[Rfam]
RNA sequence: CUACUCCCUCCGUCCCAUAAUGUAAUACAUUUUUUGACACUAGUGUAGUGUCAAAAAAUGUCUUACAUUAUGAGAUGGAGGGAGUAU
Numbered sequence: 001c002u003a004c005u006c007c008c009u010c011c012g013u014c015c016c017a018u019a020a021u022g023u024a025a026u027a028c029a030u031u032u033u034u035u036g037a038c039a040c041u042a043g044u045g046u047a048g049u050g051u052c053a054a055a056a057a058a059u060g061u062c063u064u065a066c067a068u069u070a071u072g073a074g075a076u077g078g079a080g081g082g083a084g085u086a087u
Base pairs, nucleotide, nucleotide: 003085004084005083007081008080009079010078011077013075014074016072017071019069020068021067022066023065024064025063027061028060029059030058031057032056033055034054035053036052037051038050039049040048041047